[Rfam]
RNA sequence: GGGUCUGGGUUGUAAUAUCCAGAGGUAAUCUUUAGAUGGUCGGGCCGCCAUCU
Numbered sequence: 001g002g003g004u005c006u007g008g009g010u011u012g013u014a015a016u017a018u019c020c021a022g023a024g025g026u027a028a029u030c031u032u033u034a035g036a037u038g039g040u041c042g043g044g045c046c047g048c049c050a051u052c053u
Stems, first nucleotide, its partner, number of pairs: 005022006034053007
Dot-bracket structure: ....((((((......))))))...........(((((((......)))))))
Description: A member of the RNA family "nhaA-I RNA", 53 nucleotides long. It is one of the family's seed sequences. The family's consensus secondary structure is taken from published work. About the family: Acidobacteria, Alphaproteobacteria, Betaproteobacteria and Gammaproteobacteria, Verrucomicrobia, cand. division NC10. It is annotated as a riboswitch.